Notes:
Shown here is a 197-nucleotide RNA from Naganishia liquefaciens, a member of the family "Group I catalytic intron". Rfam's curators write: Group I catalytic introns are large self-splicing ribozymes. They catalyse their own excision from mRNA, tRNA and rRNA precursors in a wide range of organisms. The family has 12 seed sequences and 5,602 matches in Rfam 15.1. Taxonomically the source falls in Naganishia (Eukaryota, Dikarya, Agaricomycotina, Tremellomycetes). It scores 73 bits against the family's covariance model.

RNA sequence: GAGUUUCGAUUAUAAGCGUGACCGUUAUGGUAGUAAUAUCAUAAUUGAAUAGUUUAAAUUACGGGAAAACCUUUAUACUCGCCAUCAAAGAGAGCGCUAAAAGGCAAUCCGUUGGUUCGUUAAGGACUUCAGAGACUAAAUAAACUAUAUGAUCUAAGAUCAUAAUGAUAUAGUCCAAUUAGAUGUGAAAAUAUCUA
Numbered sequence: 001g002a003g004u005u006u007c008g009a010u011u012a013u014a015a016g017c018g019u020g021a022c023c024g025u026u027a028u029g030g031u032a033g034u035a036a037u038a039u040c041a042u043a044a045u046u047g048a049a050u051a052g053u054u055u056a057a058a059u060u061a062c063g064g065g066a067a068a069a070c071c072u073u074u075a076u077a078c079u080c081g082c083c084a085u086c087a088a089a090g091a092g093a094g095c096g097c098u099a100a101a102a103g104g105c106a107a108u109c110c111g112u113u114g115g116u117u118c119g120u121u122a123a124g125g126a127c128u129u130c131a132g133a134g135a136c137u138a139a140a141u142a143a144a145c146u147a148u149a150u151g152a153u154c155u156a157a158g159a160u161c162a163u164a165a166u167g168a169u170a171u172a173g174u175c176c177a178a179u180u181a182g183a184u185g186u187g188a189a190a191a192u193a194u195c196u197a
Stems, first nucleotide, its partner, number of pairs: 003022003007018002029040003049148005055142002061112005070104005114128005132176001134175005150162005182195005